[Rfam]
RNA sequence: GGAUGUGAGGGUUAUCUGGCUGCGACAUCUGUCACCCCAUUGAUCGCCAGGUUCGAUUCAGCUGAUCUGGCUGGCUAGGUAGGUGUCUCCUUCCUCCCUCACCGCUCCAUGUGCAUCCCUCCUGAAGCUGCACACUCGGUCAGAGGAUGACCAUAAAGGAGGACCGUUCUUCGGUCAAGGGUGUACGAGUAGCUGCACUCCCCUGCUGGAACCUCCAAACAGGCUCUCAAGGUCCAUUGUAGAAGAACUUAGGAUGGUCAAGCUCUCAAGACUCCAGACACAUUCACAUGAGGCGCUGCAGGUGGCAGUCUGCCUUAAAAA
Numbered sequence: 001g002g003a004u005g006u007g008a009g010g011g012u013u014a015u016c017u018g019g020c021u022g023c024g025a026c027a028u029c030u031g032u033c034a035c036c037c038c039a040u041u042g043a044u045c046g047c048c049a050g051g052u053u054c055g056a057u058u059c060a061g062c063u064g065a066u067c068u069g070g071c072u073g074g075c076u077a078g079g080u081a082g083g084u085g086u087c088u089c090c091u092u093c094c095u096c097c098c099u100c101a102c103c104g105c106u107c108c109a110u111g112u113g114c115a116u117c118c119c120u121c122c123u124g125a126a127g128c129u130g131c132a133c134a135c136u137c138g139g140u141c142a143g144a145g146g147a148u149g150a151c152c153a154u155a156a157a158g159g160a161g162g163a164c165c166g167u168u169c170u171u172c173g174g175u176c177a178a179g180g181g182u183g184u185a186c187g188a189g190u191a192g193c194u195g196c197a198c199u200c201c202c203c204u205g206c207u208g209g210a211a212c213c214u215c216c217a218a219a220c221a222g223g224c225u226c227u228c229a230a231g232g233u234c235c236a237u238u239g240u241a242g243a244a245g246a247a248c249u250u251a252g253g254a255u256g257g258u259c260a261a262g263c264u265c266u267c268a269a270g271a272c273u274c275c276a277g278a279c280a281c282a283u284u285c286a287c288a289u290g291a292g293g294c295g296c297u298g299c300a301g302g303u304g305g306c307a308g309u310c311u312g313c314c315u316u317a318a319a320a321a
Base pairs, nucleotide, nucleotide: 001108002107003106005102006101007100008099009098010097011096014092018090019089024087025086026085027084028083029082030081031080032079033078035074036073037070038069039068042067043066044065045064046062047061116162117161118159119158120157122139123138124137125136127135140153192263193262194261198257199256202253203252204251205250213245214244216242219240220239221238222237290316291315292314293313294312295309296308297307298306299305
RNA: 7SK RNA